[Rfam]
RNA sequence: GUGCUUGGACGACCAAGCAUCUGAUUUUCUCAUGGGACGACCCA
Numbered sequence: 001g002u003g004c005u006u007g008g009a010c011g012a013c014c015a016a017g018c019a020u021c022u023g024a025u026u027u028u029c030u031c032a033u034g035g036g037a038c039g040a041c042c043c044a
Stems, first nucleotide, its partner, number of pairs: 001020008033044004
Notes
The family of this 44-nucleotide RNA from Methylotenera versatilis is "Guanidine-II riboswitch aptamer (mini-ykkC)". The source organism's lineage runs through Bacteria, Nitrosomonadales, Methylophilaceae, Methylotenera and Methylotenera versatilis. The family's consensus secondary structure is taken from published work.